Bacterial small subunit ribosomal RNA: a 355-nucleotide part of an RNA from Pelosinus sp. UFO1. It scores 1602 bits against the family's covariance model. Its family is annotated with structural constituent of ribosome and ribosome in the Gene Ontology.

[Rfam]
RNA sequence: GGCGUAAAGCGCGCGCAGGUGGGAUAAUAAGUCUGAUGUUAAAGUUCGGGGCUCAACCCCGUGAAGCAUUUGGAUACUGUUAUUCUUGAGUGCAGGAGAGGAAAGUGGAAUUCCUAGUGUAGCGGUGAAAUGCGUAGAUAUUAGGAGGAACACCAGUGGCGAAGGCGACUUUCUGGACUGUGUCUGACACUGAGGCGCGAAAGCCAGGGUAGUGAACGGGAUUAGAUACCCCGGUAAUCCUGGCCGUAAACGAUGGGUACUAGGUGUUGGGGGUAUCGACCCCUCCAGUGCCGGAGUUAACGCAAUAAGUACCCCGCCUGGGGAGUACGGCCGCAAGGUUGAAACUCAAAGGAAU
Numbered sequence: 001g002g003c004g005u006a007a008a009g010c011g012c013g014c015g016c017a018g019g020u021g022g023g024a025u026a027a028u029a030a031g032u033c034u035g036a037u038g039u040u041a042a043a044g045u046u047c048g049g050g051g052c053u054c055a056a057c058c059c060c061g062u063g064a065a066g067c068a069u070u071u072g073g074a075u076a077c078u079g080u081u082a083u084u085c086u087u088g089a090g091u092g093c094a095g096g097a098g099a100g101g102a103a104a105g106u107g108g109a110a111u112u113c114c115u116a117g118u119g120u121a122g123c124g125g126u127g128a129a130a131u132g133c134g135u136a137g138a139u140a141u142u143a144g145g146a147g148g149a150a151c152a153c154c155a156g157u158g159g160c161g162a163a164g165g166c167g168a169c170u171u172u173c174u175g176g177a178c179u180g181u182g183u184c185u186g187a188c189a190c191u192g193a194g195g196c197g198c199g200a201a202a203g204c205c206a207g208g209g210u211a212g213u214g215a216a217c218g219g220g221a222u223u224a225g226a227u228a229c230c231c232c233g234g235u236a237a238u239c240c241u242g243g244c245c246g247u248a249a250a251c252g253a254u255g256g257g258u259a260c261u262a263g264g265u266g267u268u269g270g271g272g273g274u275a276u277c278g279a280c281c282c283c284u285c286c287a288g289u290g291c292c293g294g295a296g297u298u299a300a301c302g303c304a305a306u307a308a309g310u311a312c313c314c315c316g317c318c319u320g321g322g323g324a325g326u327a328c329g330g331c332c333g334c335a336a337g338g339u340u341g342a343a344a345c346u347c348a349a350a351g352g353a354a355u
Base pairs, nucleotide, nucleotide: 001318002317003316009315011198012197013196014195016192018191019190020189022085023084024083025082026081027080028079030078031077032074033073034072035071036069037068038067039066040065045063047061048060049059050058051057089185090184092181093180094179095178100174101173102172103171104170105169106168107151111147112146113145114144115143116142117141118140122133123132124131159166160165203244204243205242206241207240208239212238213237217233218232219231220230255314256313257312258311259310260309263292264291265290266289267288268287269286270285271284272283273282296303297302320347321346322345329340330339331338332337